[Rfam]
RNA sequence: CUGCACGGGGCUAACACCGGGCUUGUCGGAUUGAAGCUCUGGAGAAGGAAGACCCAGUGCUUGUGCUAGAUUCACCACGCCAUUCAGUGUUGGAGAUCAUGACAAUUUUUGUGAUUGAGUGGUCUGUCAAAGUAAUGGGUACUCUC
Numbered sequence: 001c002u003g004c005a006c007g008g009g010g011c012u013a014a015c016a017c018c019g020g021g022c023u024u025g026u027c028g029g030a031u032u033g034a035a036g037c038u039c040u041g042g043a044g045a046a047g048g049a050a051g052a053c054c055c056a057g058u059g060c061u062u063g064u065g066c067u068a069g070a071u072u073c074a075c076c077a078c079g080c081c082a083u084u085c086a087g088u089g090u091u092g093g094a095g096a097u098c099a100u101g102a103c104a105a106u107u108u109u110u111g112u113g114a115u116u117g118a119g120u121g122g123u124c125u126g127u128c129a130a131a132g133u134a135a136u137g138g139g140u141a142c143u144c145u146c
Stems, first nucleotide, its partner, number of pairs: 003066006010060002019054002022051002024048001026045002080138005088129002091126002095124002097118003
Dot-bracket structure: ..((((((.((.......((.(((.((................))..).)).))....)))))))).............(((((...((.((..(((((................)))....)))).))....)))))........
A member of the RNA family "small nucleolar RNA snoR134" from Brachypodium distachyon, 146 nucleotides long. The literature on the family includes a 2009 paper in Nucleic Acids Res by Chen and Wu, "Mining small RNA sequencing data: a new approach to identify small nucleolar RNAs in Arabidopsis". The base pairs follow the family's consensus structure, which was predicted with RNAalifold. It is annotated as an H/ACA-box small nucleolar RNA.